[Rfam]
RNA sequence: GGGCCGCUCCCGCCGAGUCCGGUGCGCCCACGGGGCAGCCGGAGCCGGGGACCCACCAGGAUCCCUUGGGGUGAAUCGGCACCGCGUUCACGGCGCGGAGCCGUAGGGCAGACCUUCCCAGCCCGAACCCGACAGCUAACCCGGUAGGCGGCCGAACGGAAGGAGU
Numbered sequence: 001g002g003g004c005c006g007c008u009c010c011c012g013c014c015g016a017g018u019c020c021g022g023u024g025c026g027c028c029c030a031c032g033g034g035g036c037a038g039c040c041g042g043a044g045c046c047g048g049g050g051a052c053c054c055a056c057c058a059g060g061a062u063c064c065c066u067u068g069g070g071g072u073g074a075a076u077c078g079g080c081a082c083c084g085c086g087u088u089c090a091c092g093g094c095g096c097g098g099a100g101c102c103g104u105a106g107g108g109c110a111g112a113c114c115u116u117c118c119c120a121g122c123c124c125g126a127a128c129c130c131g132a133c134a135g136c137u138a139a140c141c142c143g144g145u146a147g148g149c150g151g152c153c154g155a156a157c158g159g160a161a162g163g164a165g166u
Stems, first nucleotide, its partner, number of pairs: 011150004018043006044145006054068002069130003077103004106124004
Shown here is a 166-nucleotide sequence, a member of the family "c-di-AMP riboswitch aptamer (ydaO/yuaA leader)". Gene Ontology terms of the family: regulation of gene expression and cyclic-di-AMP binding. Rfam describes the family as follows. This family represents a conserved RNA structure found upstream of the ydaO and yuaA genes in Bacillus subtilis and related genes in other bacteria.